[Rfam]
The family of this 89-nucleotide RNA from Albula goreensis is "Small nucleolar RNA SNORD70".
snoRNA HBII-234 belongs to the C/D family of snoRNAs. It is the human orthologue of the mouse MBII-234 and is predicted to guide 2'O-ribose methylation of the small 18S rRNA on position A512. It is hosted, together with HBII-95, by the core C/D box snoRNA protein encoding gene NOP5/NOP58.
NCBI's taxonomy places the organism under Eukaryota, Deuterostomia, Chordata, Teleostomi, Albula.
A reference for the family is Huttenhofer et al. (2001), "RNomics: an experimental approach that identifies 201 candidates for novel, small, non-messenger RNAs in mouse", EMBO J.
Its family is annotated with nucleolus and RNA processing in the Gene Ontology.
It is annotated as a C/D-box small nucleolar RNA.
RNA sequence: GAUGCUGUUGUCUAUGAUGUAUCUCUCUGUCUGACUCAACCAUGAAGUCAUUCAGCAGUAUUCGUCACUACCACUGAGACCACAGCGGG
Numbered sequence: 001g002a003u004g005c006u007g008u009u010g011u012c013u014a015u016g017a018u019g020u021a022u023c024u025c026u027c028u029g030u031c032u033g034a035c036u037c038a039a040c041c042a043u044g045a046a047g048u049c050a051u052u053c054a055g056c057a058g059u060a061u062u063c064g065u066c067a068c069u070a071c072c073a074c075u076g077a078g079a080c081c082a083c084a085g086c087g088g089g
Stems, first nucleotide, its partner, number of pairs: 003087006010080003